About this RNA:
The record is a 200-nucleotide RNA from Hevea brasiliensis, which matches "MIR159 microRNA precursor family" in Rfam. Lineage of the source: Eukaryota > Viridiplantae > Malpighiales > Euphorbiaceae > Hevea. The base pairs follow the family's consensus structure, which was predicted with WAR.
[Rfam]
RNA sequence: GGGUUAUCAUGGGAGCUCUCUUACUCCAUCUCUGAAAGGAGGUGAUGGUGUGGCACGGCUGCUGGUUCAUGAAUACCCAUUGGCUGCGCAGGUUUUAGCAAUGGUGGAUUGCGCAGACUAAGGGUUUGCAUGCGCUGGGAGACGUGGUUACCUUUCAUCUUUUUGGCAUUGGGGUGAAGGGAGCUCCCAUGUUCUUUCCA
Numbered sequence: 001g002g003g004u005u006a007u008c009a010u011g012g013g014a015g016c017u018c019u020c021u022u023a024c025u026c027c028a029u030c031u032c033u034g035a036a037a038g039g040a041g042g043u044g045a046u047g048g049u050g051u052g053g054c055a056c057g058g059c060u061g062c063u064g065g066u067u068c069a070u071g072a073a074u075a076c077c078c079a080u081u082g083g084c085u086g087c088g089c090a091g092g093u094u095u096u097a098g099c100a101a102u103g104g105u106g107g108a109u110u111g112c113g114c115a116g117a118c119u120a121a122g123g124g125u126u127u128g129c130a131u132g133c134g135c136u137g138g139g140a141g142a143c144g145u146g147g148u149u150a151c152c153u154u155u156c157a158u159c160u161u162u163u164u165g166g167c168a169u170u171g172g173g174g175u176g177a178a179g180g181g182a183g184c185u186c187c188c189a190u191g192u193u194c195u196u197u198c199c200a
Base pairs, nucleotide, nucleotide: 013186014185015184016183017182018181019180020179022176023175024174025173026172027171028170035163059141060140062138063137064136068132069131070130071129076124
The literature on the family includes a 2004 paper in Mol Cell by Jones-Rhoades and Bartel, "Computational identification of plant microRNAs and their targets, including a stress-induced miRNA".